[Rfam]
RNA sequence: AGGGAGAAACCCGAAAAUCCAAAGAGUAGGAA
Numbered sequence: 001a002g003g004g005a006g007a008a009a010c011c012c013g014a015a016a017a018u019c020c021a022a023a024g025a026g027u028a029g030g031a032a
Stems, first nucleotide, its partner, number of pairs: 003020003011030002
This 32-nucleotide RNA sequence belongs to the Rfam family "DUF805b RNA". By type it is a cis-regulatory element. It is one of the family's seed sequences.